Shown here is a 93-nucleotide sequence from Acetobacterium bakii, a member of the family "Selenocysteine transfer RNA". Taxonomically the source falls in Acetobacterium (Bacteria, Bacillati, Eubacteriales, Eubacteriaceae). The match comes from Rfam's covariance-model search (67 bits). The base pairs follow the family's consensus structure, which is taken from published work.
RNA sequence: GGGAGUAGAUGGGUGCUGGUGUGUCCUCUGGUCUUCAAAACCAGUAAGAGUAGUGAAGAGCUGCUUAGGUGGGUUCGAUUCCCACAUAUUCCC
Numbered sequence: 001g002g003g004a005g006u007a008g009a010u011g012g013g014u015g016c017u018g019g020u021g022u023g024u025c026c027u028c029u030g031g032u033c034u035u036c037a038a039a040a041c042c043a044g045u046a047a048g049a050g051u052a053g054u055g056a057a058g059a060g061c062u063g064c065u066u067a068g069g070u071g072g073g074u075u076c077g078a079u080u081c082c083c084a085c086a087u088a089u090u091c092c093c
Stems, first nucleotide, its partner, number of pairs: 001093007008085001011026006028044005048066004070084004